Rfam assigns this 106-nucleotide RNA from Mesobacillus selenatarsenatis to the family "SAM riboswitch aptamer (S box leader)".
Taxonomically the source falls in Mesobacillus selenatarsenatis (Bacteria, Bacillati, Bacillota, Bacilli).
It scores 73 bits against the family's covariance model.
About the family: The SAM riboswitch is found upstream of a number of genes which code for proteins involved in methionine or cysteine biosynthesis in Gram-positive bacteria. The SAM riboswitch acts at the level of transcription termination control. The predicted structure consists of a complex stem-loop region followed by a single stem loop terminator region.
[Rfam]
RNA sequence: CUCUUAUCAAGAGCGGCGGAGGGACAGGCCCUUUGAAGCCCGGCAGCCUUCAUGUUUUCAGAAUUAAAGGUGCUAAGUCCUGAAGAUUGCAGACUGAAGAUAAGAG
Numbered sequence: 001c002u003c004u005u006a007u008c009a010a011g012a013g014c015g016g017c018g019g020a021g022g023g024a025c026a027g028g029c030c031c032u033u034u035g036a037a038g039c040c041c042g043g044c045a046g047c048c049u050u051c052a053u054g055u056u057u058u059c060a061g062a063a064u065u066a067a068a069g070g071u072g073c074u075a076a077g078u079c080c081u082g083a084a085g086a087u088u089g090c091a092g093a094c095u096g097a098a099g100a101u102a103a104g105a106g
Base pairs, nucleotide, nucleotide: 001106002105003104004103005102006101007100008099013041015040016039017038021031022030023029025082026081027080028079042074043073044072045071047070048069049066078098083095085094087092